[Rfam]
Shown here is a 180-nucleotide RNA sequence from Pediococcus claussenii, a member of the family "Lysine riboswitch aptamer". The match comes from Rfam's covariance-model search (82 bits). The family's consensus secondary structure is taken from published work. Rfam's curators write: Riboswitches are metabolite binding domains within certain messenger RNAs that serve as precision sensors for their corresponding targets.

RNA sequence: AUCGAAAGAAGAGGUUGCUUCAAACAUUAGUAGGUGAUUAAGACGAAAAGCGUCGAAGAUGUCAUGCGAAAGGGUGCGAAGCCGAAACUAGCAUGCGCUUUUUCAAUUGUUGGUUGGGGCACAUUUUAACAGAGUGUGAACUGUCGUAACCAGAUACGGUUGCGGAGCGCUAUCUACGAU
Numbered sequence: 001a002u003c004g005a006a007a008g009a010a011g012a013g014g015u016u017g018c019u020u021c022a023a024a025c026a027u028u029a030g031u032a033g034g035u036g037a038u039u040a041a042g043a044c045g046a047a048a049a050g051c052g053u054c055g056a057a058g059a060u061g062u063c064a065u066g067c068g069a070a071a072g073g074g075u076g077c078g079a080a081g082c083c084g085a086a087a088c089u090a091g092c093a094u095g096c097g098c099u100u101u102u103u104c105a106a107u108u109g110u111u112g113g114u115u116g117g118g119g120c121a122c123a124u125u126u127u128a129a130c131a132g133a134g135u136g137u138g139a140a141c142u143g144u145c146g147u148a149a150c151c152a153g154a155u156a157c158g159g160u161u162g163c164g165g166a167g168c169g170c171u172a173u174c175u176a177c178g179a180u
Stems, first nucleotide, its partner, number of pairs: 006175001008173001010171002017082005024075002033067001034065005086115008097104001116142002120138007144165007